This 105-nucleotide sequence from Dorea longicatena belongs to the Rfam family "pan motif". Taxonomically the source falls in Dorea longicatena (Bacteria, Bacillati, Bacillota, Clostridia). Rfam classes the family as a cis-regulatory element.

RNA sequence: GAGACGGUAUCUGUCCCUGACAGAACCAUACUCAGAACUGAAGCACUGGAAUCUCAUAAUUUUCAACAAAAAUGAGCUUAUAUUUUCAGGAAAUAAGACUCAGGA
Numbered sequence: 001g002a003g004a005c006g007g008u009a010u011c012u013g014u015c016c017c018u019g020a021c022a023g024a025a026c027c028a029u030a031c032u033c034a035g036a037a038c039u040g041a042a043g044c045a046c047u048g049g050a051a052u053c054u055c056a057u058a059a060u061u062u063u064c065a066a067c068a069a070a071a072a073u074g075a076g077c078u079u080a081u082a083u084u085u086u087c088a089g090g091a092a093a094u095a096a097g098a099c100u101c102a103g104g105a
Stems, first nucleotide, its partner, number of pairs: 001033003004029001006027003010024004074101003077097005083092003